[Rfam]
The record is a 75-nucleotide RNA from Danaus plexippus, which matches "mir-745 microRNA precursor family" in Rfam.
NCBI's taxonomy places the organism under Eukaryota, Hexapoda, Glossata, Neolepidoptera, Danaus plexippus.
Its family is annotated with RISC complex and miRNA-mediated post-transcriptional gene silencing in the Gene Ontology.

RNA sequence: GUGUCGAUUGCGGCUCAUCGUAAGGCAGUUUGCUUGGUUAACGCCAGCUGCCUAGCGAAGGGCAACAAACGACAG
Numbered sequence: 001g002u003g004u005c006g007a008u009u010g011c012g013g014c015u016c017a018u019c020g021u022a023a024g025g026c027a028g029u030u031u032g033c034u035u036g037g038u039u040a041a042c043g044c045c046a047g048c049u050g051c052c053u054a055g056c057g058a059a060g061g062g063c064a065a066c067a068a069a070c071g072a073c074a075g
Stems, first nucleotide, its partner, number of pairs: 003073004008068003013063004018058004024052004032048003